[Rfam]
Rfam assigns this 116-nucleotide sequence from Anaerolinea thermophila to the family "TPP riboswitch aptamer (THI element)". The match comes from Rfam's covariance-model search (63 bits).
RNA sequence: AGGUGCAAAACGGGGAGCCCGGCGCACCGGGCUGAGAGGAAGACAGGCAUCGGUCUUCGACCCGCAGAACCUGAUCCGGGUAAUGCCGGCGGAGGGACGAGAUGAAUGCUCUGAGU
Dot-bracket structure: .....((...((((..(((((......)))))......(((((..........)))))..)))).....(((...((((......))))...))).......))............